Rfam assigns this 208-nucleotide RNA sequence from Streptomyces poonensis to the family "Streptomyces RNA 1601".

[Rfam]
RNA sequence: GACGACCGGCCGGACACACCUGGUGCCCGGCCCGCAAGUGGAGGCUCCGAACUCCCACCUGACCGCCCUCCGGGACGGCAGGUCACCGGUCAGGCGCCCCACCGUUCCGUACGGACGGUGGAGUCGCCCGAUGCGCGCCCCGCGGCCGACCGCGGCGGUGCUCCGGCAGUCUUGGAGCCCCGCCUGUGUCCCGUCCGGGGCAUUUUUC
Number, nucleotide and partner (000 for none) at each position: 001g000002a000003c000004g091005a090006c089007c088008g087009g086010c000011c000012g028013g027014a000015c000016a000017c000018a000019c000020c000021u000022g000023g000024u000025g000026c000027c013028c012029g084030g083031c082032c081033c000034g000035c061036a060037a000038g058039u057040g056041g055042a053043g052044g000045c000046u000047c000048c000049g000050a000051a000052c043053u042054c000055c041056c040057a039058c038059c000060u036061g035062a000063c078064c077065g076066c074067c073068c072069u000070c000071c000072g068073g067074g066075a000076c065077g064078g063079c000080a000081g032082g031083u030084c029085a000086c009087c008088g007089g006090u005091c004092a000093g128094g127095c126096g125097c000098c000099c121100c120101a119102c118103c117104g116105u115106u114107c000108c000109g000110u000111a000112c000113g000114g106115a105116c104117g103118g102119u101120g100121g099122a000123g000124u000125c096126g095127c094128c093129c000130g000131a000132u000133g000134c000135g000136c000137g201138c200139c199140c198141c197142g196143c193144g192145g191146c000147c000148g000149a000150c000151c188152g187153c186154g184155g183156c182157g181158g180159u000160g178161c177162u176163c175164c174165g000166g000167c000168a000169g000170u000171c000172u000173u000174g164175g163176a162177g161178c160179c000180c158181c157182g156183c155184c154185u000186g153187u152188g151189u000190c000191c145192c144193g143194u000195c000196c142197g141198g140199g139200g138201c137202a000203u000204u000205u000206u000207u000208c000

Rfam's curators write: Identified by deep sequencing of transcriptome at the end of exponential growth phase. Appears longer on northern blot than sequencing transcript. Streptomyces specific. The source organism's lineage runs through Bacteria, Bacillati, Actinomycetota, Kitasatosporales and Streptomyces. For this family Rfam cites "Deep sequencing-based identification of small non-coding RNAs in Streptomyces coelicolor" (Vockenhuber et al., RNA Biol, 2011). By type it is a small RNA. A search with the family's covariance model found it, with a score of 162 bits.